The record is a 69-nucleotide RNA sequence from Callosobruchus maculatus, which matches "mir-8/mir-141/mir-200 microRNA precursor family" in Rfam. Rfam links the family to the GO terms miRNA-mediated post-transcriptional gene silencing and RISC complex. The literature on the family includes a 2003 paper in RNA by Lagos-Quintana et al., "New microRNAs from mouse and human".

RNA sequence: GUUAACAUCUUACCGGGCAGCAUUAGAUUGUUUUUGAAAUUUCUAAUACUGUCAGGUAAAGAUGUCCUC
Numbered sequence: 001g002u003u004a005a006c007a008u009c010u011u012a013c014c015g016g017g018c019a020g021c022a023u024u025a026g027a028u029u030g031u032u033u034u035u036g037a038a039a040u041u042u043c044u045a046a047u048a049c050u051g052u053c054a055g056g057u058a059a060a061g062a063u064g065u066c067c068u069c
Stems, first nucleotide, its partner, number of pairs: 005065005010059005016053005022047006